[Rfam]
RNA sequence: GUCGAAAAAGGCACACUCGUCGUAAGGCGGGGUCGCAAAGGCACGGGACCUUCGGGGUUAGCCGGUCUACCGAAA
Number, nucleotide and partner (000 for none) at each position: 001g000002u000003c072004g071005a000006a000007a000008a000009a000010g000011g036012c035013a000014c000015a000016c031017u030018c029019g028020u027021c026022g000023u000024a000025a000026g021027g020028c019029g018030g017031g016032g000033u000034c061035g012036c011037a000038a000039a068040g067041g066042c065043a000044c064045g063046g062047g059048a058049c057050c000051u000052u000053c000054g000055g000056g000057g049058u048059u047060a000061g034062c046063c045064g044065g042066u041067c040068u039069a000070c000071c004072g003073a000074a000075a000

A member of the RNA family "c-di-GMP-I-GGC riboswitch aptamer" from Cryobacterium fucosi, 75 nucleotides long. The source organism's lineage runs through Bacteria, Bacillati, Actinomycetota, Actinomycetes and Cryobacterium. Its family is annotated with cyclic-di-GMP binding in the Gene Ontology.